[Rfam]
This 96-nucleotide RNA sequence from Scyliorhinus torazame belongs to the Rfam family "Z30 small nucleolar RNA".
RNA sequence: GGCUAUGAUGAGUUACAGUAUGGUGACCUGGUAUUGGCAAAUCCCUGUGGGGUGCCUCUGACCAGGAGAUGAACAUUGAAUCUUCUCUCUGAGCCA
Numbered sequence: 001g002g003c004u005a006u007g008a009u010g011a012g013u014u015a016c017a018g019u020a021u022g023g024u025g026a027c028c029u030g031g032u033a034u035u036g037g038c039a040a041a042u043c044c045c046u047g048u049g050g051g052g053u054g055c056c057u058c059u060g061a062c063c064a065g066g067a068g069a070u071g072a073a074c075a076u077u078g079a080a081u082c083u084u085c086u087c088u089c090u091g092a093g094c095c096a
Base pairs, nucleotide, nucleotide: 002094003093036056037055038054039053
Dot-bracket structure: .((................................((((.............))))....................................))..
Its family is annotated with RNA processing and nucleolus in the Gene Ontology.
It scores 68 bits against the family's covariance model.
On this family, see Galardi et al., Mol Cell Biol 2002: "Purified box C/D snoRNPs are able to reproduce site-specific 2'-O-methylation of target RNA in vitro".
The organism belongs to Scyliorhinus, within Eukaryota.